The record is a 147-nucleotide sequence from Candidatus Tokpelaia sp. JSC189, which matches "Alphaproteobacterial sRNA ar45" in Rfam. On this family, see del Val et al., RNA Biol 2012: "A survey of sRNA families in alpha-proteobacteria". The family's RNA type in Rfam is small RNA. Lineage of the source: Bacteria > Pseudomonadati > Alphaproteobacteria > Hyphomicrobiales > Candidatus Tokpelaia.
RNA sequence: GUUCAAAGUCGCACGUGCCUGUGGAUGUUCGCCGGUUCUCGAAUGGUGAGAUCAGCCGGUAAGGUACUUGGAUCUAACCGUUCCAAUCGCUCUGUCGACCAAACGCCAGAACGAAGACAUCUUGAAGCAACGACGGUGCGGACCUUU
Numbered sequence: 001g002u003u004c005a006a007a008g009u010c011g012c013a014c015g016u017g018c019c020u021g022u023g024g025a026u027g028u029u030c031g032c033c034g035g036u037u038c039u040c041g042a043a044u045g046g047u048g049a050g051a052u053c054a055g056c057c058g059g060u061a062a063g064g065u066a067c068u069u070g071g072a073u074c075u076a077a078c079c080g081u082u083c084c085a086a087u088c089g090c091u092c093u094g095u096c097g098a099c100c101a102a103a104c105g106c107c108a109g110a111a112c113g114a115a116g117a118c119a120u121c122u123u124g125a126a127g128c129a130a131c132g133a134c135g136g137u138g139c140g141g142a143c144c145u146u147u
Base pairs, nucleotide, nucleotide: 001143002142003141004140008134009133010132011131016129017128018127023122024121025120026119027118028117029116031060032059033058034057035056037051038050039049040048041047068086069085070084071083072082087114088113089112093108094107096105097104